[Rfam]
RNA: mir-275 microRNA precursor family
Organism: Cloeon dipterum
RNA sequence: ACUUGGUAACCCACGCGUGCUGCAACCGGUGCUAGUGGCUGUUUCUUAAUGCAGUCAGGUACCUGAAGUAGCGCGCGGGGAUGCCAGGAC
Numbered sequence: 001a002c003u004u005g006g007u008a009a010c011c012c013a014c015g016c017g018u019g020c021u022g023c024a025a026c027c028g029g030u031g032c033u034a035g036u037g038g039c040u041g042u043u044u045c046u047u048a049a050u051g052c053a054g055u056c057a058g059g060u061a062c063c064u065g066a067a068g069u070a071g072c073g074c075g076c077g078g079g080g081a082u083g084c085c086a087g088g089a090c
Stems, first nucleotide, its partner, number of pairs: 009082001011080002014077001016075007031060003037056004